[Rfam]
RNA sequence: AAAUGUAGUAGUACUAUAAGUAUACGUGGACAAUGGAAGUAUACUAAGUACACUACGUUUAU
Numbered sequence: 001a002a003a004u005g006u007a008g009u010a011g012u013a014c015u016a017u018a019a020g021u022a023u024a025c026g027u028g029g030a031c032a033a034u035g036g037a038a039g040u041a042u043a044c045u046a047a048g049u050a051c052a053c054u055a056c057g058u059u060u061a062u
Base pairs, nucleotide, nucleotide: 001060002059003058004057005056006055007054008053009052013049014048015047019045020044021043022042023041024040025039
The record is a 62-nucleotide RNA sequence from Gadus morhua, which matches "mir-728 microRNA precursor family" in Rfam. Its family is annotated with RISC complex and miRNA-mediated post-transcriptional gene silencing in the Gene Ontology.